Shown here is a 123-nucleotide sequence, a member of the family "Small nucleolar RNA SNORD14". U14 small nucleolar RNA (U14 snoRNA) is required for early cleavages of eukaryotic precursor rRNAs. In yeasts, this molecule possess a stem-loop region (known as the Y-domain) which is essential for function. A similar structure, but with a different consensus sequence, is found in plants, but is absent in vertebrates.

RNA sequence: UGUCAAUGAUGAAAAAAUCAAGGCUUGUUUCUCAAUACAUUCGCAGUGGCCGUCUAAGAACUUUCGCCCUUCGCCGGGCUCGAGAGUAUAUGCUGAACUAUACUUCCUUGGAUGUCUGAGACA
Numbered sequence: 001u002g003u004c005a006a007u008g009a010u011g012a013a014a015a016a017a018u019c020a021a022g023g024c025u026u027g028u029u030u031c032u033c034a035a036u037a038c039a040u041u042c043g044c045a046g047u048g049g050c051c052g053u054c055u056a057a058g059a060a061c062u063u064u065c066g067c068c069c070u071u072c073g074c075c076g077g078g079c080u081c082g083a084g085a086g087u088a089u090a091u092g093c094u095g096a097a098c099u100a101u102a103c104u105u106c107c108u109u110g111g112a113u114g115u116c117u118g119a120g121a122c123a
Stems, first nucleotide, its partner, number of pairs: 001123004060087006
Dot-bracket structure: ((((.......................................................((((((................))))))................................))))